Small nucleolar RNA SNORA11: a 129-nucleotide RNA sequence from Cavia porcellus. The source organism's lineage runs through Eukaryota, Sarcopterygii, Theria, Euarchontoglires and Cavia. The sequence is in the family's curated seed alignment. On this family, see Gu et al., Nucleic Acids Res 2005: "A novel experimental approach for systematic identification of box H/ACA snoRNAs from eukaryotes".
RNA sequence: GGGGUGUGCUCAGAGCAGGGGCCCUGAAGAAUGGCUCCUCUGUUUACAACACACCCAACAGGAAUCCAGGGCCAUUGUGAAGAGGGCCACAACACUUGUGGCCUCCCUAUGAGCAAAUGCCCUACAUGU
Numbered sequence: 001g002g003g004g005u006g007u008g009c010u011c012a013g014a015g016c017a018g019g020g021g022c023c024c025u026g027a028a029g030a031a032u033g034g035c036u037c038c039u040c041u042g043u044u045u046a047c048a049a050c051a052c053a054c055c056c057a058a059c060a061g062g063a064a065u066c067c068a069g070g071g072c073c074a075u076u077g078u079g080a081a082g083a084g085g086g087c088c089a090c091a092a093c094a095c096u097u098g099u100g101g102c103c104u105c106c107c108u109a110u111g112a113g114c115a116a117a118u119g120c121c122c123u124a125c126a127u128g129u
Base pairs, nucleotide, nucleotide: 002056003055004054005053006052007051008050013045014044015043016042017041018040019039020038021037023034024033069122070121071120072119076115077114078113082110084104085103086102088100089099090098091097092096

Rfam links the family to the GO terms nucleolus and RNA processing. U107 (SNORA11) is a member of the H/ACA class of snoRNAs that guide the sites of modification of uridines to pseudouridines. This snoRNA was identified by RT-PCR from blood cells and its expression confirmed by Northern blot analysis. There is no predicted target for this guide snRNA. By type it is an H/ACA-box small nucleolar RNA. The base pairs follow the family's consensus structure, which was predicted with RNAalifold.